RNA: c-di-GMP-I riboswitch aptamer
Organism: Caproicibacter fermentans
Nucleotides: 092
Base pairs, nucleotide, nucleotide: 012037013036017032019030022027040086041085042084043083046082047081048080049077050076051075056071057070058069059068060067061066
Number, partner (000 for none) and nucleotide at each position: 001000c002000c003000c004000u005000g006000c007000u008000u009000u010000a011000u012037g013036c014000a015000a016000a017032c018000a019030c020000c021000a022027c023000u024000a025000a026000a027022g028000g029000c030019g031000g032017g033000g034000a035000c036013g037012c038000a039000a040086a041085g042084c043083c044000g045000c046082a047081g048080g049077g050076u051075c052000u053000a054000a055000u056071g057070u058069g059068c060067u061066u062000u063000u064000u065000a066061a067060a068059g069058u070057g071056c072000a073000a074000u075051g076050a077049c078000a079000g080048u081047c082046u083043g084042g085041c086040u087000g088000c089000a090000a091000a092000g